RNA sequence: GAUCAAUUCGUAAACCGGUUAAGCCGGAGAGCGAAUGGUUUUAACCACAGUUUUUAUUCGGGAAACCCGAUGAAAGGUGAGCA
Numbered sequence: 001g002a003u004c005a006a007u008u009c010g011u012a013a014a015c016c017g018g019u020u021a022a023g024c025c026g027g028a029g030a031g032c033g034a035a036u037g038g039u040u041u042u043a044a045c046c047a048c049a050g051u052u053u054u055u056a057u058u059c060g061g062g063a064a065a066c067c068c069g070a071u072g073a074a075a076g077g078u079g080a081g082c083a
Base pairs, nucleotide, nucleotide: 004081007035008034009033010032011031016026017025018024019023037046038045039044050078051077052076058070059069060068061067062066
This 83-nucleotide sequence belongs to the Rfam family "SucA RNA motif". It is annotated as a cis-regulatory element. Rfam links the family to the GO term regulation of translation.